[Rfam]
This 368-nucleotide part of an RNA from uncultured eukaryote HF0200_37F04 belongs to the Rfam family "Eukaryotic large subunit ribosomal RNA".

RNA sequence: CGAAUGAAACCAGUUUAUUUCGGCGAGAUUGCUGCAGGAAGCGAGAAAAACGCUGCUACGGUACCGAAAGGGCUGUAGUAUUGUUCUACUUAGAUUCCUGCAGUGGUUCUUGUCGGUAAGAGUCAACGUCAGUUGGGCAUCGAACUAUAUCUGCUUGGAACUCCUUGCUGGGUUGCGGCUCAGUAAGAGUGUCGAGUGUGAAGUUGGAUCUCAACUGAGGGCUUUGUGCGAGGAUCUAGUUCUGCGUAAUUUGCACGAAAGUGCGCUUUGCUCAUCGAGUUUAGUGCAUGCAUUGUGUAGAUGAGUCGAGAUAUCUUCGUUCUGUGACGUUGACGAAAUGGCUUUUUUCGACCCGUCUUGAAACACGG
Numbered sequence: 001c002g003a004a005u006g007a008a009a010c011c012a013g014u015u016u017a018u019u020u021c022g023g024c025g026a027g028a029u030u031g032c033u034g035c036a037g038g039a040a041g042c043g044a045g046a047a048a049a050a051c052g053c054u055g056c057u058a059c060g061g062u063a064c065c066g067a068a069a070g071g072g073c074u075g076u077a078g079u080a081u082u083g084u085u086c087u088a089c090u091u092a093g094a095u096u097c098c099u100g101c102a103g104u105g106g107u108u109c110u111u112g113u114c115g116g117u118a119a120g121a122g123u124c125a126a127c128g129u130c131a132g133u134u135g136g137g138c139a140u141c142g143a144a145c146u147a148u149a150u151c152u153g154c155u156u157g158g159a160a161c162u163c164c165u166u167g168c169u170g171g172g173u174u175g176c177g178g179c180u181c182a183g184u185a186a187g188a189g190u191g192u193c194g195a196g197u198g199u200g201a202a203g204u205u206g207g208a209u210c211u212c213a214a215c216u217g218a219g220g221g222c223u224u225u226g227u228g229c230g231a232g233g234a235u236c237u238a239g240u241u242c243u244g245c246g247u248a249a250u251u252u253g254c255a256c257g258a259a260a261g262u263g264c265g266c267u268u269u270g271c272u273c274a275u276c277g278a279g280u281u282u283a284g285u286g287c288a289u290g291c292a293u294u295g296u297g298u299a300g301a302u303g304a305g306u307c308g309a310g311a312u313a314u315c316u317u318c319g320u321u322c323u324g325u326g327a328c329g330u331u332g333a334c335g336a337a338a339u340g341g342c343u344u345u346u347u348u349c350g351a352c353c354c355g356u357c358u359u360g361a362a363a364c365a366c367g368g
Stems, first nucleotide, its partner, number of pairs: 001350004006345003010341003020119001022117001024115003124332007353368004
Lineage of the source: Eukaryota > named eukaryotic clones. The base pairs follow the family's consensus structure, which is taken from published work.